[Rfam]
RNA sequence: GUAUGUCCUAAGGGGUGGCAGUGCUAUCUAUUAGCCUGGCCUGAGAUGCACAUGAUGUGCGAACCCUCUGAACCUGAUCCGGAUGAUACCGGCGUAGGAAUAGGAACGAUUACAAGC
Numbered sequence: 001g002u003a004u005g006u007c008c009u010a011a012g013g014g015g016u017g018g019c020a021g022u023g024c025u026a027u028c029u030a031u032u033a034g035c036c037u038g039g040c041c042u043g044a045g046a047u048g049c050a051c052a053u054g055a056u057g058u059g060c061g062a063a064c065c066c067u068c069u070g071a072a073c074c075u076g077a078u079c080c081g082g083a084u085g086a087u088a089c090c091g092g093c094g095u096a097g098g099a100a101u102a103g104g105a106a107c108g109a110u111u112a113c114a115a116g117c
Stems, first nucleotide, its partner, number of pairs: 006105005011067004016061001017041003021037001048060005073098004079092004
Dot-bracket structure: .....(((((((((.((((.(...............).)))......(((((...))))))..)))).....((((..((((......))))..))))..)))))............
RNA: TPP riboswitch aptamer (THI element)